[Rfam]
RNA sequence: GAGCCCGCAGGUCCCCAUCCGACAGCGCGAUGCGCCCUCGGGUGAUUUUUCG
Numbered sequence: 001g002a003g004c005c006c007g008c009a010g011g012u013c014c015c016c017a018u019c020c021g022a023c024a025g026c027g028c029g030a031u032g033c034g035c036c037c038u039c040g041g042g043u044g045a046u047u048u049u050u051c052g
Base pairs, nucleotide, nucleotide: 016044017043018042019041020040021039022038025035026034027033028032

Overview
Rfam assigns this 52-nucleotide RNA from Cohaesibacter gelatinilyticus to the family "ffh sRNA". On this family, see Meyer et al., BMC Genomics 2009: "Identification of candidate structured RNAs in the marine organism 'Candidatus Pelagibacter ubique'". The organism belongs to Cohaesibacter, within Bacteria. Pairs were carried over by alignment from the consensus structure, which is taken from published work. By type it is a small RNA.